[Rfam]
RNA sequence: GUGACAGAAGAGUGUGAGCACCUAUGGUCCUCAUGCAAAUGGUUAUUUUUUUAUGCAUGAAGCUAUGUGUGCUCGCUCUCUAUCUGUCAU
Numbered sequence: 001g002u003g004a005c006a007g008a009a010g011a012g013u014g015u016g017a018g019c020a021c022c023u024a025u026g027g028u029c030c031u032c033a034u035g036c037a038a039a040u041g042g043u044u045a046u047u048u049u050u051u052u053a054u055g056c057a058u059g060a061a062g063c064u065a066u067g068u069g070u071g072c073u074c075g076c077u078c079u080c081u082a083u084c085u086g087u088c089a090u
Base pairs, nucleotide, nucleotide: 001090002089003088004087005086006085007084008083010080011079012078014076015075016074017073018072019071020070021069023067024066025065026064027063
RNA: mir-156 microRNA precursor family
Organism: Helianthus annuus